[Rfam]
RNA sequence: CCCCCCGAAGUGGAUCUAAGUCCAGCCUCCCCAGAGGAUGCCCGUGGGGUAGAGCACCGAUCUAGGGCGCAGGGGCCGAAAGGCCCCGGCUCCGGGUCGAACUUCGAACUCACGGGCUCCGUAGAAGGGGGGAGACGGGUUUCCCGGGGGUAAGCUUGGGAACCGAGAGGGGAACAACCCAGACCGGGGUUAAGGCCCCUAAGCGCGGGCUAAGUGCUAAUCCGGAAGGGAGUCUUCCGCCGAAGACGGCGGGGCCGUAGGCCCAGCAGCAGCCAUCGGCUAAGAAGUGCGUAACAGCUUACCCGCUGAGGCGGGAGGCCCUUAAGAUGUGCGGGGCUUAAGCCCGCCGCCGAGACCCCGGGCCGUGGAUUAUUGAAUCCACGAGCGGUAGGGGGGCGUGGCCAUGGGCUAGAAGCCGGGCCGUGAGGUCCGGUGGACCCGUGGCCAAUGCGGAU
Numbered sequence: 001c002c003c004c005c006c007g008a009a010g011u012g013g014a015u016c017u018a019a020g021u022c023c024a025g026c027c028u029c030c031c032c033a034g035a036g037g038a039u040g041c042c043c044g045u046g047g048g049g050u051a052g053a054g055c056a057c058c059g060a061u062c063u064a065g066g067g068c069g070c071a072g073g074g075g076c077c078g079a080a081a082g083g084c085c086c087c088g089g090c091u092c093c094g095g096g097u098c099g100a101a102c103u104u105c106g107a108a109c110u111c112a113c114g115g116g117c118u119c120c121g122u123a124g125a126a127g128g129g130g131g132g133a134g135a136c137g138g139g140u141u142u143c144c145c146g147g148g149g150g151u152a153a154g155c156u157u158g159g160g161a162a163c164c165g166a167g168a169g170g171g172g173a174a175c176a177a178c179c180c181a182g183a184c185c186g187g188g189g190u191u192a193a194g195g196c197c198c199c200u201a202a203g204c205g206c207g208g209g210c211u212a213a214g215u216g217c218u219a220a221u222c223c224g225g226a227a228g229g230g231a232g233u234c235u236u237c238c239g240c241c242g243a244a245g246a247c248g249g250c251g252g253g254g255c256c257g258u259a260g261g262c263c264c265a266g267c268a269g270c271a272g273c274c275a276u277c278g279g280c281u282a283a284g285a286a287g288u289g290c291g292u293a294a295c296a297g298c299u300u301a302c303c304c305g306c307u308g309a310g311g312c313g314g315g316a317g318g319c320c321c322u323u324a325a326g327a328u329g330u331g332c333g334g335g336g337c338u339u340a341a342g343c344c345c346g347c348c349g350c351c352g353a354g355a356c357c358c359c360g361g362g363c364c365g366u367g368g369a370u371u372a373u374u375g376a377a378u379c380c381a382c383g384a385g386c387g388g389u390a391g392g393g394g395g396g397c398g399u400g401g402c403c404a405u406g407g408g409c410u411a412g413a414a415g416c417c418g419g420g421c422c423g424u425g426a427g428g429u430c431c432g433g434u435g436g437a438c439c440c441g442u443g444g445c446c447a448a449u450g451c452g453g454a455u
Base pairs, nucleotide, nucleotide: 001396002395003394004393005392006391011024012023013022014021015020026134027132028131029130030129031128032127036120037119038118040117041116042115043114044113045112046111047110052105053103054102059098060097061096062095063094065092066091067090068089072087073086074085075084076083077082138164139163140162141161142160143159144158147157148156169180170179171178184361185360186359187358188357189356190355194351195350196349203348205347206346207345208344209343210342228322229321230320232319233318234317235316236315237314238313239312240311241310249306250305251304252303253302255279256278257277260274261273262272280284285300289298290297362386363385364383365382366381367380368379397450399447400446401445402444403443404442405441406440407439408438415434416433417432418431419430420429421428422427